[Rfam]
RNA sequence: GGUAACUGUGAUGAGUCCUACAGACCUGUAAUGAUUCUUGCGGAAAUGAUCGCAGAUUCAUAGAACAUCUAAGGGACUGAGUUGUC
Number, nucleotide and partner (000 for none) at each position: 001g000002g085003u084004a083005a082006c081007u000008g000009u000010g000011a000012u000013g000014a000015g000016u000017c000018c000019u000020a000021c000022a000023g000024a000025c000026c000027u000028g000029u000030a000031a000032u000033g000034a000035u000036u000037c000038u000039u000040g000041c000042g000043g000044a000045a000046a000047u000048g000049a000050u000051c000052g000053c000054a000055g000056a000057u000058u000059c000060a000061u000062a000063g000064a000065a000066c000067a000068u000069c000070u000071a000072a000073g000074g000075g000076a000077c000078u000079g000080a000081g006082u005083u004084g003085u002086c000
RNA: Small nucleolar RNA SNORD25